[Rfam]
This 345-nucleotide RNA sequence from Sphingomonas panacisoli belongs to the Rfam family "Alphaproteobacteria transfer-messenger RNA". The family's RNA type in Rfam is non-coding RNA gene. A reference for the family is Williams and Bartel (1996), "Phylogenetic analysis of tmRNA secondary structure", RNA. The match comes from Rfam's covariance-model search (206 bits). Rfam describes the family as follows. Bacterial tmRNA, also known as 10Sa RNA or SsrA, is named for its dual tRNA and mRNA-like properties. Its role is to liberate the mRNA from a stalled ribosome. To accomplish this part of the tmRNA is used as a reading frame that ends in a translation stop signal. The family is grouped with related families in Rfam's "tRNA clan".
RNA sequence: CCACUUUUCUUUAAGCGCCAAGCGCCUAUAUUGGUCGGUGCAAGGGCUUCGGCCCGGCUAUGGCGAUAAACGACGGCGUAUAAUAGACGCAGCGGACCCGGGGGCAGUACCCGGCGGCUCCACCAUAUGCCCCUGAUAACACAGGGGUUUCUGACGGGGCCGAACCAGGAUCGACGUGUGUUGAAAGGCGCUGACUUUUGCUCGGAAUGGGACCACCGUGACGGCCCGUACACAAGUGCCAACGAUAACGAAGCACUCGCUAUGGCGGCCUAACCCCACGGCCUAACGGCCUAAGGUUAGACUAAAAUGCGCGGUCGGACCCACCGGGCAACAGAAGGGAAUCCA
Number, nucleotide and partner (000 for none) at each position: 001c000002c000003a000004c000005u000006u000007u000008u000009c000010u000011u000012u000013a000014a000015g000016c000017g000018c000019c000020a000021a000022g000023c000024g000025c000026c000027u000028a000029u000030a000031u000032u000033g000034g000035u000036c000037g000038g000039u000040g058041c057042a000043a000044g054045g000046g000047c000048u000049u000050c000051g000052g000053c000054c044055c000056g000057g041058c040059u000060a000061u000062g202063g201064c200065g199066a198067u000068a000069a000070a000071c000072g195073a000074c193075g000076g191077c190078g189079u188080a000081u000082a000083a000084u000085a000086g000087a000088c180089g179090c178091a000092g177093c176094g175095g000096a000097c000098c114099c113100g112101g111102g110103g000104g000105c000106a000107g000108u000109a000110c102111c101112c100113g099114g098115c162116g161117g160118c159119u158120c157121c156122a000123c000124c000125a000126u000127a000128u000129g000130c000131c000132c000133c000134u000135g000136a000137u000138a000139a000140c000141a000142c000143a000144g000145g000146g000147g000148u000149u000150u000151c000152u000153g000154a000155c000156g121157g120158g119159g118160c117161c116162g115163a000164a000165c000166c000167a000168g000169g000170a000171u000172c000173g000174a000175c094176g093177u092178g090179u089180g088181u000182u000183g000184a000185a000186a000187g000188g079189c078190g077191c076192u000193g074194a000195c072196u000197u000198u066199u065200g064201c063202u062203c218204g217205g216206a000207a000208u228209g227210g226211g000212a000213c224214c223215a000216c205217c204218g203219u000220g000221a000222c000223g214224g213225c000226c210227c209228g208229u000230a000231c000232a000233c000234a000235a000236g000237u000238g000239c000240c000241a000242a000243c000244g000245a000246u000247a000248a000249c000250g000251a000252a000253g000254c000255a000256c000257u000258c000259g000260c000261u000262a000263u000264g000265g000266c000267g000268g000269c000270c000271u000272a000273a000274c000275c000276c000277c000278a000279c000280g000281g000282c000283c000284u000285a000286a000287c000288g000289g000290c000291c000292u000293a000294a000295g000296g000297u000298u000299a000300g000301a000302c000303u000304a000305a000306a000307a000308u000309g000310c000311g000312c326313g325314g324315u323316c000317g344318g343319a342320c000321c000322c339323a315324c314325c313326g312327g000328g000329c000330a000331a000332c000333a000334g000335a000336a000337g000338g000339g322340a000341a000342u319343c318344c317345a000